The record is an 80-nucleotide RNA from Alligator sinensis, which matches "Mammalian CPEB3 ribozyme" in Rfam. Taxonomically the source falls in Alligator (Eukaryota, Dipnotetrapodomorpha, Tetrapoda, Archelosauria). The family's consensus secondary structure is taken from published work.
[Rfam]
RNA sequence: AGAGGUCUUAAGUCCAUGGCCACAGCAGAAGUGCUCAUGGCACGGCCCUGCCAAAUUCCAAUGAAUCUGCAAACUCUGCU
Numbered sequence: 001a002g003a004g005g006u007c008u009u010a011a012g013u014c015c016a017u018g019g020c021c022a023c024a025g026c027a028g029a030a031g032u033g034c035u036c037a038u039g040g041c042a043c044g045g046c047c048c049u050g051c052c053a054a055a056u057u058c059c060a061a062u063g064a065a066u067c068u069g070c071a072a073a074c075u076c077u078g079c080u
Base pairs, nucleotide, nucleotide: 018047019046020045021044024080025079026078027077028076029075031043032042033041052069053068055066056065057064058063